[Rfam]
RNA sequence: GCGGUCUGAAAGUCACUGGGGGCCUGGCGUGGCCCCUGGUGAGAUAACAGCGCCCACAGCAUCGGGAACAUUAGGCUUAUUUCCCACGGCUGUCUGUGGGGAGUAAAACCCAUGUUCGCACAGGC
Number, nucleotide and partner (000 for none) at each position: 001g000002c000003g000004g000005u000006c050007u049008g048009a000010a045011a000012g000013u042014c041015a040016c039017u000018g000019g000020g000021g034022g033023c032024c031025u000026g000027g000028c000029g000030u000031g024032g023033c022034c021035c000036c000037u000038g000039g016040u015041g014042a013043g000044a000045u010046a000047a000048c008049a007050g006051c000052g000053c000054c000055c000056a000057c000058a000059g000060c000061a000062u000063c000064g000065g000066g000067a116068a115069c114070a113071u112072u000073a000074g000075g000076c000077u106078u105079a104080u103081u102082u000083c000084c000085c098086a097087c096088g000089g000090c000091u000092g000093u000094c000095u000096g087097u086098g085099g000100g000101g000102a081103g080104u079105a078106a077107a000108a000109c000110c000111c000112a071113u070114g069115u068116u067117c000118g000119c000120a000121c000122a000123g000124g000125c000
Record summary:
Rfam assigns this 125-nucleotide sequence from Furnarius figulus to the family "Small nucleolar RNA ACA64". NCBI's taxonomy places the organism under Eukaryota, Craniata, Theropoda, Neoaves, Furnarius. The family has 30 seed sequences and 9,537 matches in Rfam 15.1. Gene Ontology terms of the family: RNA processing and nucleolus. The family's consensus secondary structure was predicted with WAR. The family's RNA type in Rfam is H/ACA-box small nucleolar RNA. It scores 69 bits against the family's covariance model.